[Rfam]
RNA sequence: AUGGCUGCUUAGCUCUGAGAACUGAAUUCCAUAGGCUUUAGAAGAAAUGAAACGCCCCGUGGAUUCAGUUCUACAGCUAGACAGCUAAUA
Numbered sequence: 001a002u003g004g005c006u007g008c009u010u011a012g013c014u015c016u017g018a019g020a021a022c023u024g025a026a027u028u029c030c031a032u033a034g035g036c037u038u039u040a041g042a043a044g045a046a047a048u049g050a051a052a053c054g055c056c057c058c059g060u061g062g063a064u065u066c067a068g069u070u071c072u073a074c075a076g077c078u079a080g081a082c083a084g085c086u087a088a089u090a
Stems, first nucleotide, its partner, number of pairs: 009080001011078003018072008034056003

Rfam assigns this 90-nucleotide RNA from Python bivittatus to the family "mir-146 microRNA precursor family". The organism belongs to Python, within Eukaryota. Rfam 15.1 lists 1,617 matches to the family in 642 species. It scores 72 bits against the family's covariance model. Rfam links the family to the GO terms miRNA-mediated post-transcriptional gene silencing and RISC complex. The literature on the family includes a 2005 paper in Proc Natl Acad Sci U S A by Cai et al., "Kaposi's sarcoma-associated herpesvirus expresses an array of viral microRNAs in latently infected cells".